[Rfam]
Record summary
This 83-nucleotide RNA from Lupinus angustifolius belongs to the Rfam family "mir-156 microRNA precursor family". A search with the family's covariance model found it, with a score of 68 bits. A reference for the family is Reinhart et al. (2002), "MicroRNAs in plants", Genes Dev. From the family's description: This family represents the plant microRNA (miRNA) precursor mir-156. Pairs were carried over by alignment from the consensus structure, which was predicted with PFOLD.
RNA sequence: UUGACAGAAGAGAGUGAGCACACAGAGGCACUUGGUAUAGCUUUAUAUUACUGCUUUUGCGUGCUCAUUUCUCUUUCUGUCAU
Dot-bracket structure: .((((((((((((((((((((.(((...............................))).))))))))).))).)))))))).